The family of this 116-nucleotide sequence from Urinicoccus massiliensis is "FMN riboswitch aptamer (RFN element)". NCBI's taxonomy places the organism under Bacteria, Bacillati, Tissierellia, Peptoniphilaceae, Urinicoccus. The RFN element is a highly conserved domain that is found frequently in the 5'-untranslated regions of prokaryotic mRNAs that encode for flavin mononucleotide (FMN) biosynthesis and transport proteins. It scores 110 bits against the family's covariance model.

RNA sequence: UUUGUUUUUCAGGGCGAGGUGCAAUUCCUCACCGGUGGUGAUAGUCCACAAGUCGCAAGAUUGAAUUGGUGAAAUUCCAAUACCGACGGUUAAAGUCCGGAUGGAAGAAAAACGUG
Number, nucleotide and partner (000 for none) at each position: 001u000002u000003u114004g113005u112006u111007u110008u109009u108010c107011a000012g000013g000014g000015c000016g000017a029018g028019g027020u000021g000022c000023a000024a000025u000026u000027c019028c018029u017030c000031a096032c095033c085034g084035g049036u048037g047038g046039u000040g000041a000042u000043a000044g083045u082046c038047c037048a036049c035050a000051a000052g061053u060054c059055g000056c000057a000058a000059g054060a053061u052062u000063g000064a000065a081066u080067u079068g078069g077070u000071g000072a000073a000074a000075u000076u000077c069078c068079a067080a066081u065082a045083c044084c034085g033086a000087c099088g098089g097090u000091u000092a000093a000094a000095g032096u031097c089098c088099g087100g000101a000102u000103g000104g000105a000106a000107g010108a009109a008110a007111a006112a005113c004114g003115u000116g000